[Rfam]
RNA sequence: AGAUGGUGUAAACAUCCUACACUCAGCUGUGAUCUUUUGCCGCAGAGGCUGAGAGAAGGUUGUUUACUUGAACUGG
Numbered sequence: 001a002g003a004u005g006g007u008g009u010a011a012a013c014a015u016c017c018u019a020c021a022c023u024c025a026g027c028u029g030u031g032a033u034c035u036u037u038u039g040c041c042g043c044a045g046a047g048g049c050u051g052a053g054a055g056a057a058g059g060u061u062g063u064u065u066a067c068u069u070g071a072a073c074u075g076g
Base pairs, nucleotide, nucleotide: 001074002073004071006069008067009066010065011064012063013062014061016059017058018057020055022053023052024051025050026049027048028047
Rfam assigns this 76-nucleotide RNA sequence from Tetraodon nigroviridis to the family "mir-30 microRNA precursor family".
NCBI's taxonomy places the organism under Eukaryota, Opisthokonta, Actinopterygii, Ctenosquamata, Tetraodon.
The sequence is in the family's curated seed alignment.
The literature on the family includes a 2001 paper in Cell by Ambros, "microRNAs: tiny regulators with great potential".
Rfam's curators write: This family consists of the mammalian microRNA (miRNA) precursor mir-30a.
The family's consensus secondary structure was predicted with PFOLD.